Overview
Shown here is a 198-nucleotide sequence from Rhizobium johnstonii, a member of the family "Rhizobiales sRNA Atu_C9". The source organism's lineage runs through Bacteria, Pseudomonadati, Alphaproteobacteria, Rhizobium and Rhizobium johnstonii. It is one of the family's seed sequences. By type it is a small RNA. The base pairs follow the family's consensus structure, which was predicted with WAR.
RNA sequence: GGUUAACGCGAGGAGACAGACAUGGGACUCACGCAAUCCUUGAAUGUUCUGUUGGUCAGUGCAGCGUUUGCUUUCGUCUUGUCCAUGCUCUUCAUCUGAGCUGGCCGACGAAAGUGUAAUGACUGAUAGUGCCUAAACUCCUGAAUAGCUGAUCAAUCCGCCAACGAAAAAGCGCAUGUCCCGCCCGACAUGCGCUUU
Numbered sequence: 001g002g003u004u005a006a007c008g009c010g011a012g013g014a015g016a017c018a019g020a021c022a023u024g025g026g027a028c029u030c031a032c033g034c035a036a037u038c039c040u041u042g043a044a045u046g047u048u049c050u051g052u053u054g055g056u057c058a059g060u061g062c063a064g065c066g067u068u069u070g071c072u073u074u075c076g077u078c079u080u081g082u083c084c085a086u087g088c089u090c091u092u093c094a095u096c097u098g099a100g101c102u103g104g105c106c107g108a109c110g111a112a113a114g115u116g117u118a119a120u121g122a123c124u125g126a127u128a129g130u131g132c133c134u135a136a137a138c139u140c141c142u143g144a145a146u147a148g149c150u151g152a153u154c155a156a157u158c159c160g161c162c163a164a165c166g167a168a169a170a171a172g173c174g175c176a177u178g179u180c181c182c183g184c185c186c187g188a189c190a191u192g193c194g195c196u197u198u
Stems, first nucleotide, its partner, number of pairs: 015048004024040004169198012